The record is a 431-nucleotide part of an RNA from Prorocentrum micans, which matches "Eukaryotic large subunit ribosomal RNA" in Rfam.
[Rfam]
RNA sequence: GGUAGUAGCAAAUAUUCAAAUGAGAACUUUGAAGACCGAAGUGGAGAAGGGUUCCACGUGAACAGCAGUUGGACGUGGGUUAGUCGAUCCUAAGAGACAGGAUGUUCCGCACACGCAGCUUUGCCUCGACUCUCGAAAGGCAAUGGGGUUAAUAUUCCCCAACCAGGACGUGGAUACAUGUAUGGCAACGUAAGAGAAUUCGGUGACGCAGGGGGGAGCCUUGGGCAAGCGUUGUCUUUUCUUUUUAAGCCGUCUUUUACCCUGAAAUCAGAUUGCCUGGAGAAAGGGUUAAUUGGCGGGUAAAGCACCUUGUCUUCCGAGGUGUCCGGUGCGCUCUCAACUGUCCUUGAAAAACCGAAGAAAGACUUAUUCACACCCCUGGUCGUACCCAUAACCGCAUCAGGUCUCCAAGGUUAGCAGCCUCUGGUCGA
Numbered sequence: 001g002g003u004a005g006u007a008g009c010a011a012a013u014a015u016u017c018a019a020a021u022g023a024g025a026a027c028u029u030u031g032a033a034g035a036c037c038g039a040a041g042u043g044g045a046g047a048a049g050g051g052u053u054c055c056a057c058g059u060g061a062a063c064a065g066c067a068g069u070u071g072g073a074c075g076u077g078g079g080u081u082a083g084u085c086g087a088u089c090c091u092a093a094g095a096g097a098c099a100g101g102a103u104g105u106u107c108c109g110c111a112c113a114c115g116c117a118g119c120u121u122u123g124c125c126u127c128g129a130c131u132c133u134c135g136a137a138a139g140g141c142a143a144u145g146g147g148g149u150u151a152a153u154a155u156u157c158c159c160c161a162a163c164c165a166g167g168a169c170g171u172g173g174a175u176a177c178a179u180g181u182a183u184g185g186c187a188a189c190g191u192a193a194g195a196g197a198a199u200u201c202g203g204u205g206a207c208g209c210a211g212g213g214g215g216g217a218g219c220c221u222u223g224g225g226c227a228a229g230c231g232u233u234g235u236c237u238u239u240u241c242u243u244u245u246u247a248a249g250c251c252g253u254c255u256u257u258u259a260c261c262c263u264g265a266a267a268u269c270a271g272a273u274u275g276c277c278u279g280g281a282g283a284a285a286g287g288g289u290u291a292a293u294u295g296g297c298g299g300g301u302a303a304a305g306c307a308c309c310u311u312g313u314c315u316u317c318c319g320a321g322g323u324g325u326c327c328g329g330u331g332c333g334c335u336c337u338c339a340a341c342u343g344u345c346c347u348u349g350a351a352a353a354a355c356c357g358a359a360g361a362a363a364g365a366c367u368u369a370u371u372c373a374c375a376c377c378c379c380u381g382g383u384c385g386u387a388c389c390c391a392u393a394a395c396c397g398c399a400u401c402a403g404g405u406c407u408c409c410a411a412g413g414u415u416a417g418c419a420g421c422c423u424c425u426g427g428u429c430g431a
Stems, first nucleotide, its partner, number of pairs: 015033006034429004043409004049389002054078006063071002085385003089140002094134002096106003113126001115124001144161005164381004170376003174371001181192004199359006208344004214338006221329003224245002227243003250299005259289005268280004306324007395404002411423004
Dot-bracket structure: ..............((((((.......))))))((((.....((((..((...((((((...((.....)).))))))......(((.((...(((((.....)))......(.(........).)......))....))...(((((........)))))..((((..(((.(......((((....))))......((((((...((((..((((((.(((((.(((...........)))))....(((((....(((((....((((.....))))....))))).....)))))......(((((((.....)))))))..)))...))))))..)))).........))))))...........)..))).)))).)))..)).....((......)).)))).((((.....))))..))))..
Gene Ontology terms of the family: ribosome and structural constituent of ribosome.
NCBI's taxonomy places the organism under Eukaryota, Alveolata, Prorocentrales, Prorocentraceae, Prorocentrum.
The sequence is in the family's curated seed alignment.